[Rfam]
RNA: Bacterial RNase P class B
Organism: Candidatus Phytoplasma oryzae
RNA sequence: AAUAUAAGGUGAUCAAGGUUUGAUAUUAUUAUAAAUAAUGUCAGGUUUAGGAAAGUCCAUGUUAGCACAUGUUUCAGGAAUAACAUGUAGUGUUUGUGCUUAAGAAAACAAUAACUUAAGGUACUUAAAUAAAUUUAAGUAACGGCUUUUUUUAUAUUCUAAAGACUUAUUUUUUAUUUUAAGUUUAUGAAAAUAAAAAAAUAAAGUGCCACAGAGACGAGUUAAUUAGAAAUAAUUAAGUGAAACGCGGUAAACCCCUCAAGCUAAUAAUCCAAAAAAGGUAGGAGCACAUAGAAUAAACUUUUUCCUGUUUUAUUUAAAGUUAUUUUUAUGCUAUUUAAUUAAAAUUUAAAUAGAGAUAAAUGAUCACAUCUUAUUUUAAAAAAAAUUUAAUUUAGUUAUUUUGAUAAAAUAAGAACAGAACAUGGCUUAUUCAU
Numbered sequence: 001a002a003u004a005u006a007a008g009g010u011g012a013u014c015a016a017g018g019u020u021u022g023a024u025a026u027u028a029u030u031a032u033a034a035a036u037a038a039u040g041u042c043a044g045g046u047u048u049a050g051g052a053a054a055g056u057c058c059a060u061g062u063u064a065g066c067a068c069a070u071g072u073u074u075c076a077g078g079a080a081u082a083a084c085a086u087g088u089a090g091u092g093u094u095u096g097u098g099c100u101u102a103a104g105a106a107a108a109c110a111a112u113a114a115c116u117u118a119a120g121g122u123a124c125u126u127a128a129a130u131a132a133a134u135u136u137a138a139g140u141a142a143c144g145g146c147u148u149u150u151u152u153u154a155u156a157u158u159c160u161a162a163a164g165a166c167u168u169a170u171u172u173u174u175u176a177u178u179u180u181a182a183g184u185u186u187a188u189g190a191a192a193a194u195a196a197a198a199a200a201a202u203a204a205a206g207u208g209c210c211a212c213a214g215a216g217a218c219g220a221g222u223u224a225a226u227u228a229g230a231a232a233u234a235a236u237u238a239a240g241u242g243a244a245a246c247g248c249g250g251u252a253a254a255c256c257c258c259u260c261a262a263g264c265u266a267a268u269a270a271u272c273c274a275a276a277a278a279a280g281g282u283a284g285g286a287g288c289a290c291a292u293a294g295a296a297u298a299a300a301c302u303u304u305u306u307c308c309u310g311u312u313u314u315a316u317u318u319a320a321a322g323u324u325a326u327u328u329u330u331a332u333g334c335u336a337u338u339u340a341a342u343u344a345a346a347a348u349u350u351a352a353a354u355a356g357a358g359a360u361a362a363a364u365g366a367u368c369a370c371a372u373c374u375u376a377u378u379u380u381a382a383a384a385a386a387a388a389u390u391u392a393a394u395u396u397a398g399u400u401a402u403u404u405u406g407a408u409a410a411a412a413u414a415a416g417a418a419c420a421g422a423a424c425a426u427g428g429c430u431u432a433u434u435c436a437u
Base pairs, nucleotide, nucleotide: 004437005436007433009370010369011368012367013366014365016048017047018046019045020044021043022042023041024040025039026038027037028036029035053431054430055429057428058427059426060425061424062267063266064265065264066263067088068087069086070085071084072083094262095261096260098258099120100119101118102117103116104115121143122141123140124139125138126137127136128135129134144257145256147200148199149198150197157191158190159189163186164185165184166183167182168181169180206255207254208251209250210249222239223238224237225236226235227234228233271286272285273284290333291332292331293330294329295328296327334356335355336354337353338352339351340350341349373416374415375414376413377412378411379410380409381408